[Rfam]
RNA sequence: UUAAGCAGUGAUGAGCCUAACAGACCUGUAAUGAUUUGCGAAUAUGAUCGCAAUGCAUUAUGAACAUCUAAGGGACUGAGUUUAU
Dot-bracket structure: .(((((.........................................................................))))).
Source information: Shown here is an 85-nucleotide RNA from Cucurbita maxima, a member of the family "Small nucleolar RNA SNORD25". Clan: SNORD25 clan. The family's RNA type in Rfam is C/D-box small nucleolar RNA. Pairs were carried over by alignment from the consensus structure, which was predicted with PFOLD. Taxonomically the source falls in Cucurbita (Eukaryota, Pentapetalae, rosids, fabids). The match comes from Rfam's covariance-model search (68 bits). The literature on the family includes a 2001 paper in Nucleic Acids Res by Qu et al., "Identification of 10 novel snoRNA gene clusters from Arabidopsis thaliana".